Shown here is a 97-nucleotide RNA sequence from Synaphobranchus kaupii, a member of the family "mir-210 microRNA precursor family". The family's consensus secondary structure was predicted with WAR. The literature on the family includes a 2005 paper in Genes Dev by Chen et al., "The developmental miRNA profiles of zebrafish as determined by small RNA cloning". The family has 26 seed sequences and 790 matches in Rfam 15.1. The organism belongs to Synaphobranchus, within Eukaryota.
RNA sequence: UCCAAAAGCAGGUAAGCCACUGACUAACGCACAUUGCGCUUUUCCACAUUCCACUGUGCGUGUGACAGCGGCUAACCAGCUUUUUGGGGUAUCAUCG
Numbered sequence: 001u002c003c004a005a006a007a008g009c010a011g012g013u014a015a016g017c018c019a020c021u022g023a024c025u026a027a028c029g030c031a032c033a034u035u036g037c038g039c040u041u042u043u044c045c046a047c048a049u050u051c052c053a054c055u056g057u058g059c060g061u062g063u064g065a066c067a068g069c070g071g072c073u074a075a076c077c078a079g080c081u082u083u084u085u086g087g088g089g090u091a092u093c094a095u096c097g
Stems, first nucleotide, its partner, number of pairs: 005083005011077002015073004020068003024064001025062002028060006035053002